[Rfam]
The record is a 191-nucleotide sequence from Theobroma umbraticum, which matches "small nucleolar RNA snoR143" in Rfam. Lineage of the source: Eukaryota > Spermatophyta > Mesangiospermae > Byttnerioideae > Theobroma. Rfam 15.1 lists 660 matches to the family in 212 species. On this family, see Chen and Wu, Nucleic Acids Res 2009: "Mining small RNA sequencing data: a new approach to identify small nucleolar RNAs in Arabidopsis". Rfam classes the family as an H/ACA-box small nucleolar RNA.
RNA sequence: UUCUUGAAGGAAAGCAAAAUUCUUUGUUGAUGCUUUGUUUCUUAACAACAGUGCAGAAAUAAAAAGCCUGAUUUUGCUUUCUUUGAAACCCAAAGAAGCUGAAUUAGGCAGCGGCCAGACAACCGUAGGGAUGGUAUCCACAGAUGAAGGGCAUUUUCAUCCCUCUUGUCUACUGAUUCCAUCUCACAUUU
Numbered sequence: 001u002u003c004u005u006g007a008a009g010g011a012a013a014g015c016a017a018a019a020u021u022c023u024u025u026g027u028u029g030a031u032g033c034u035u036u037g038u039u040u041c042u043u044a045a046c047a048a049c050a051g052u053g054c055a056g057a058a059a060u061a062a063a064a065a066g067c068c069u070g071a072u073u074u075u076g077c078u079u080u081c082u083u084u085g086a087a088a089c090c091c092a093a094a095g096a097a098g099c100u101g102a103a104u105u106a107g108g109c110a111g112c113g114g115c116c117a118g119a120c121a122a123c124c125g126u127a128g129g130g131a132u133g134g135u136a137u138c139c140a141c142a143g144a145u146g147a148a149g150g151g152c153a154u155u156u157u158c159a160u161c162c163c164u165c166u167u168g169u170c171u172a173c174u175g176a177u178u179c180c181a182u183c184u185c186a187c188a189u190u191u
Stems, first nucleotide, its partner, number of pairs: 004088002009082003013078009128185007136178001147167005
Dot-bracket structure: ...((...(((.(((((((((................................................))))))))).)))....)).......................................(((((((.(..........(((((...........)))))..........))))))))......